This 300-nucleotide RNA sequence from Streptomyces silvensis belongs to the Rfam family "Streptomyces sRNA 4677". On this family, see Hindra et al., PLoS One 2014: "Complex intra-operonic dynamics mediated by a small RNA in Streptomyces coelicolor". About the family: Located in the intergenic region between anti-sigma factor SCO4677 gene and a putative regulatory protein gene SCO4676. scr4677 expression requires the SCO4677 activity and scr4677 sRNA itself seem to affect the levels of the SCO4676-associated transcripts. It scores 103 bits against the family's covariance model. It is annotated as a small RNA.
RNA sequence: UACACCGGUGACGCUGCCGACAACCCCGUAAAGGACGACAGGGAAAGCAACCCCGCCAAGCCCCAACCGCCUCGCGCCGCAGGUCGGAACCCACCACUCCCUCGGGUGAACAUCACCAACUCGGCUUGCGCGCUGCCCUGUCGCGCCCCAUACGCUCACGCCGAGCGCACCACCGCACCACCGCACCACCACGCAACCGCACCACCGCACCACCACACAACCGCAGACAUGCGACGGCCCCCGCCGGGACUGGCAUCCCAAUGCGAGGGCCUGACCACCGAGGAAGAAAGCCGCUUCCCG
Numbered sequence: 001u002a003c004a005c006c007g008g009u010g011a012c013g014c015u016g017c018c019g020a021c022a023a024c025c026c027c028g029u030a031a032a033g034g035a036c037g038a039c040a041g042g043g044a045a046a047g048c049a050a051c052c053c054c055g056c057c058a059a060g061c062c063c064c065a066a067c068c069g070c071c072u073c074g075c076g077c078c079g080c081a082g083g084u085c086g087g088a089a090c091c092c093a094c095c096a097c098u099c100c101c102u103c104g105g106g107u108g109a110a111c112a113u114c115a116c117c118a119a120c121u122c123g124g125c126u127u128g129c130g131c132g133c134u135g136c137c138c139u140g141u142c143g144c145g146c147c148c149c150a151u152a153c154g155c156u157c158a159c160g161c162c163g164a165g166c167g168c169a170c171c172a173c174c175g176c177a178c179c180a181c182c183g184c185a186c187c188a189c190c191a192c193g194c195a196a197c198c199g200c201a202c203c204a205c206c207g208c209a210c211c212a213c214c215a216c217a218c219a220a221c222c223g224c225a226g227a228c229a230u231g232c233g234a235c236g237g238c239c240c241c242c243g244c245c246g247g248g249a250c251u252g253g254c255a256u257c258c259c260a261a262u263g264c265g266a267g268g269g270c271c272u273g274a275c276c277a278c279c280g281a282g283g284a285a286g287a288a289a290g291c292c293g294c295u296u297c298c299c300g
Base pairs, nucleotide, nucleotide: 007279008278009277010276016077018076019075095108096107097106098105099104124206126204236271237270238269239268240267242265243264244263246259247258248257249256282298283297284296285295286294